Shown here is a 132-nucleotide RNA from Enhydra lutris, a member of the family "ODC internal ribosome entry site (IRES)". It scores 76 bits against the family's covariance model. The organism belongs to Enhydra lutris, within Eukaryota. The family has 13 seed sequences and 437 matches in Rfam 15.1. A reference for the family is Pyronnet et al. (2005), "Alternative splicing facilitates internal ribosome entry on the ornithine decarboxylase mRNA", Cell Mol Life Sci.
[Rfam]
Nucleotides: 132
Stems, first nucleotide, its partner, number of pairs: 006079001010076002014072001016070001017068004022063003026060002039053004086129003090125001096119003
Number, partner (000 for none) and nucleotide at each position: 001000a002000u003000c004000u005000c006079u007000g008000c009000u010076g011075c012000u013000g014072c015000a016070c017068c018067a019066a020065g021000a022063g023062c024061g025000u026060g027059u028000g029000c030000a031000u032000c033000u034000u035000u036000a037000g038000u039053g040052g041051g042050a043000c044000u045000u046000g047000g048000a049000a050042u051041c052040c053039c054000u055000g056000g057000g058000a059027a060026u061024u062023g063022c064000c065020u066019u067018u068017g069000u070016g071000a072014g073000a074000u075011g076010c077000u078000a079006g080000c081000c082000a083000u084000a085000a086129u087128u088127u089000g090125u091000u092000a093000a094000a095000u096119u097118c098117c099000a100000u101000c102000u103000c104000u105000u106000a107000g108000u109000u110000u111000u112000c113000c114000a115000u116000g117098g118097g119096a120000c121000c122000a123000u124000c125090a126000a127088g128087a129086g130000a131000c132000c